Mammalian CPEB3 ribozyme: a 77-nucleotide RNA from Alligator mississippiensis. NCBI's taxonomy places the organism under Eukaryota, Eumetazoa, Deuterostomia, Amniota, Alligator. About the family: The mammalian CPEB3 ribozyme is a self cleaving RNA located in the second intron of the CPEB3 gene which belongs to a family of genes regulating messenger RNA polyadenylation.
[Rfam]
RNA sequence: GGUUGCAAGUUCGAGGCUGUAGCAGAAGCGCUUACAGCACGGCCCUGUCAGAUUUCAACAAAUCUAUGAAUUCUGCU
Numbered sequence: 001g002g003u004u005g006c007a008a009g010u011u012c013g014a015g016g017c018u019g020u021a022g023c024a025g026a027a028g029c030g031c032u033u034a035c036a037g038c039a040c041g042g043c044c045c046u047g048u049c050a051g052a053u054u055u056c057a058a059c060a061a062a063u064c065u066a067u068g069a070a071u072u073c074u075g076c077u
Stems, first nucleotide, its partner, number of pairs: 013045001015044004021077007028040001030038001050065006